[Rfam]
RNA sequence: CGAUGAGGUAGAGGUGCAGGACAUAUCAGUAUCGGGAACGAGCGUGACAGCGAAGAGCCCCCGGGAAAGGAUGCCCUGCCGAAGUAUGGACGGAUCGUCAUACCUUCCAUGCUGGUACAUGUUUGAAUAAAAGAUGUACUGUCAUGCAUGUUACAUGCAUGGUGCGCUACUGAUCGC
Numbered sequence: 001c002g003a004u005g006a007g008g009u010a011g012a013g014g015u016g017c018a019g020g021a022c023a024u025a026u027c028a029g030u031a032u033c034g035g036g037a038a039c040g041a042g043c044g045u046g047a048c049a050g051c052g053a054a055g056a057g058c059c060c061c062c063g064g065g066a067a068a069g070g071a072u073g074c075c076c077u078g079c080c081g082a083a084g085u086a087u088g089g090a091c092g093g094a095u096c097g098u099c100a101u102a103c104c105u106u107c108c109a110u111g112c113u114g115g116u117a118c119a120u121g122u123u124u125g126a127a128u129a130a131a132a133g134a135u136g137u138a139c140u141g142u143c144a145u146g147c148a149u150g151u152u153a154c155a156u157g158c159a160u161g162g163u164g165c166g167c168u169a170c171u172g173a174u175c176g177c
Base pairs, nucleotide, nucleotide: 007171008170009169010168011167016079017078018077019076020075022073023072024071032064033063034062035061036060039057083113084112085111086110087109088108089107090106092104093103114140115139116138117137118136119135120134122132123131124130142162143161144160145159146158147157148156
RNA: Lysine riboswitch aptamer
Organism: Salimicrobium jeotgali